Rfam assigns this 115-nucleotide RNA sequence from Hypnocyclicus thermotrophus to the family "TPP riboswitch aptamer (THI element)". Taxonomically the source falls in Hypnocyclicus (Bacteria, Fusobacteriota, Fusobacteriia, Fusobacteriales).

[Rfam]
RNA sequence: UAAAACUGCUAGGGGAGCUUAUGAAAAUUUUUAUUUUCAAUAGCUGAGAGGAGAAAUCCGACUCUUAGAACCUGAUCUGGUUAAUACCAGCGUAGGGAAGCGGUAAAUAUAUAUA
Numbered sequence: 001u002a003a004a005a006c007u008g009c010u011a012g013g014g015g016a017g018c019u020u021a022u023g024a025a026a027a028u029u030u031u032u033a034u035u036u037u038c039a040a041u042a043g044c045u046g047a048g049a050g051g052a053g054a055a056a057u058c059c060g061a062c063u064c065u066u067a068g069a070a071c072c073u074g075a076u077c078u079g080g081u082u083a084a085u086a087c088c089a090g091c092g093u094a095g096g097g098a099a100g101c102g103g104u105a106a107a108u109a110u111a112u113a114u115a
Base pairs, nucleotide, nucleotide: 006103007102008101009100010099011065012064013063014062017044018043019042051058052057071096072095073094074093077090078089079088080087